Source information: The family of this 88-nucleotide RNA sequence from Bacillus sp. FJAT-26390 is "BsrC". The 301 nucleotide sequence from Kouji Nakamura has been trimmed to a highly conserved ~85 nucleotide long core to form this family. Rfam 15.1 lists 572 matches to the family in 553 species. The family's consensus secondary structure was predicted with CMfinder. By type it is a small RNA. A reference for the family is Saito et al. (2008), "Novel small RNA-encoding genes in the intergenic regions of Bacillus subtilis", Gene.

RNA sequence: GCAUUCUAAAACAACGAAAGCCCUACCUCUCUUCCGUCCUCGCGGCUCCGAAGACCGCGCCAGUGUGAAUCAGAAAUACAUCACGUAA
Dot-bracket structure: ..................................((..(((((((.(.....).)))))..))..)).....................